[Rfam]
RNA sequence: GUGAAUGUGAUGACAGGGAUAGUACGUAUCGCGUGUUUUGCUCAGAGAGCCGGGUAAGGUGUGAGCCGGCGCAGGAACCGCUACGGAAUGCCACCCUCGAACAGCCUGCGGAAAACUAAUAGUAAGCAUGGCCGUAGCCUGGCGUUAACAGGAAAAAGUGAGCCCCACAGGCUAAACUAGGUGGUACCACGGGAAUAUUUUCUCGUCCUUUUC
Numbered sequence: 001g002u003g004a005a006u007g008u009g010a011u012g013a014c015a016g017g018g019a020u021a022g023u024a025c026g027u028a029u030c031g032c033g034u035g036u037u038u039u040g041c042u043c044a045g046a047g048a049g050c051c052g053g054g055u056a057a058g059g060u061g062u063g064a065g066c067c068g069g070c071g072c073a074g075g076a077a078c079c080g081c082u083a084c085g086g087a088a089u090g091c092c093a094c095c096c097u098c099g100a101a102c103a104g105c106c107u108g109c110g111g112a113a114a115a116c117u118a119a120u121a122g123u124a125a126g127c128a129u130g131g132c133c134g135u136a137g138c139c140u141g142g143c144g145u146u147a148a149c150a151g152g153a154a155a156a157a158g159u160g161a162g163c164c165c166c167a168c169a170g171g172c173u174a175a176a177c178u179a180g181g182u183g184g185u186a187c188c189a190c191g192g193g194a195a196u197a198u199u200u201u202c203u204c205g206u207c208c209u210u211u212u213c
Base pairs, nucleotide, nucleotide: 007102008101015097016096017095018094025085026084027083028082030080038074039073040072049070050069051068052067053066105131106130107128108127109126133144134143135142161173162172163171164170179209180208181207189206190205191204192203193202
RNA: T-box leader